[Rfam]
RNA sequence: AUUAUCUUUAAUCUGGUCCAGAGAGGCUAGAAAGGUAUGAAAAUAGGAGUGUUUUUAUCUAUUACUAUGUUCAAGGUAAGUAUGCCUUUCUGUGCCCAUGCCCAGGAAGGCUUUUUUUAU
Numbered sequence: 001a002u003u004a005u006c007u008u009u010a011a012u013c014u015g016g017u018c019c020a021g022a023g024a025g026g027c028u029a030g031a032a033a034g035g036u037a038u039g040a041a042a043a044u045a046g047g048a049g050u051g052u053u054u055u056u057a058u059c060u061a062u063u064a065c066u067a068u069g070u071u072c073a074a075g076g077u078a079a080g081u082a083u084g085c086c087u088u089u090c091u092g093u094g095c096c097c098a099u100g101c102c103c104a105g106g107a108a109g110g111c112u113u114u115u116u117u118u119a120u
Stems, first nucleotide, its partner, number of pairs: 003037007013030006039072003043068004048063004080115001082113001084111009
The record is a 120-nucleotide sequence from Gottschalkia purinilytica, which matches "PyrR binding site" in Rfam. Rfam describes the family as follows. This family represents the PyrR binding site and terminator structure. This RNA structure is found upstream of a variety of genes involved in pyrimidine biosynthesis and transport. The alignment also includes a portion of the antiterminator structure. By type it is a cis-regulatory element.